This 76-nucleotide RNA from Xanthomonas oryzae belongs to the Rfam family "Xanthomonas sRNA sX9".
A reference for the family is Schmidtke et al. (2011), "Genome-wide transcriptome analysis of the plant pathogen Xanthomonas identifies sRNAs with putative virulence functions", Nucleic Acids Res.
Lineage of the source: Bacteria > Pseudomonadota > Lysobacterales > Xanthomonas oryzae > Xanthomonas oryzae pv. oryzae.
The family has 16 seed sequences and 309 matches in Rfam 15.1.
A search with the family's covariance model found it, with a score of 69 bits.
RNA sequence: AUGUGCCACUCGUACACGCGGUUCUGAGCGUACCGCCCGCACCCGCCUGGCGACCGCUCGCUACGUUUUGUCAGCG
Numbered sequence: 001a002u003g004u005g006c007c008a009c010u011c012g013u014a015c016a017c018g019c020g021g022u023u024c025u026g027a028g029c030g031u032a033c034c035g036c037c038c039g040c041a042c043c044c045g046c047c048u049g050g051c052g053a054c055c056g057c058u059c060g061c062u063a064c065g066u067u068u069u070g071u072c073a074g075c076g
Base pairs, nucleotide, nucleotide: 002016003015004014005013006012019035020034021033022032024030047074048073049072050071051070052069053068